[Rfam]
RNA sequence: CCAGCAGCAAAAAGAAAGCGUUCAAAUUGCAAGCUCAUUUGAGCGCUGAUACAAUGCUGCCAGAGCAAAACGAAGCCAGGAACAGUUCAGUUUAGCGUAGUCUAUAAACUGAUCUACACGUGGCCUCACAUUU
Numbered sequence: 001c002c003a004g005c006a007g008c009a010a011a012a013a014g015a016a017a018g019c020g021u022u023c024a025a026a027u028u029g030c031a032a033g034c035u036c037a038u039u040u041g042a043g044c045g046c047u048g049a050u051a052c053a054a055u056g057c058u059g060c061c062a063g064a065g066c067a068a069a070a071c072g073a074a075g076c077c078a079g080g081a082a083c084a085g086u087u088c089a090g091u092u093u094a095g096c097g098u099a100g101u102c103u104a105u106a107a108a109c110u111g112a113u114c115u116a117c118a119c120g121u122g123g124c125c126u127c128a129c130a131u132u133u
Stems, first nucleotide, its partner, number of pairs: 004060006017047010028037002075124004084115002087112008

The family of this 133-nucleotide RNA sequence from Drosophila virilis is "Drosophila small cajal body-specific RNA PsiU2-38.40.4". Rfam links the family to the GO terms nucleolus, Cajal body and RNA processing. For this family Rfam cites "Novel small Cajal-body-specific RNAs identified in Drosophila: probing guide RNA function" (Deryusheva and Gall, RNA, 2013). The base pairs follow the family's consensus structure, which was predicted with RNAfold. The family's RNA type in Rfam is small Cajal body RNA.